[Rfam]
RNA sequence: GGGCCAGCUUAGCCUAGCGGUUACUUCGACUCAACAUUUGGAGACUCUCUAAUUGCUUAACGGCAGUUUGAUACCCCGCAGGCGCUGUCUGGUCUUUUU
Numbered sequence: 001g002g003g004c005c006a007g008c009u010u011a012g013c014c015u016a017g018c019g020g021u022u023a024c025u026u027c028g029a030c031u032c033a034a035c036a037u038u039u040g041g042a043g044a045c046u047c048u049c050u051a052a053u054u055g056c057u058u059a060a061c062g063g064c065a066g067u068u069u070g071a072u073a074c075c076c077c078g079c080a081g082g083c084g085c086u087g088u089c090u091g092g093u094c095u096u097u098u099u
Base pairs, nucleotide, nucleotide: 002094003093004092005091006090007089012083013082014081015080017079018078019077020076026071027070028069029068

Description
Shown here is a 99-nucleotide sequence from Podarcis muralis, a member of the family "Vault RNA". Rfam classes the family as a non-coding RNA gene. Rfam's curators write: This family of RNAs are found as part of the enigmatic vault ribonucleoprotein complex. The complex consists of a major vault protein (MVP), two minor vault proteins (VPARP and TEP1), and several small untranslated RNA molecules. On this family, see Stadler et al., Mol Biol Evol 2009: "Evolution of Vault RNAs". Pairs were carried over by alignment from the consensus structure, which is taken from published work.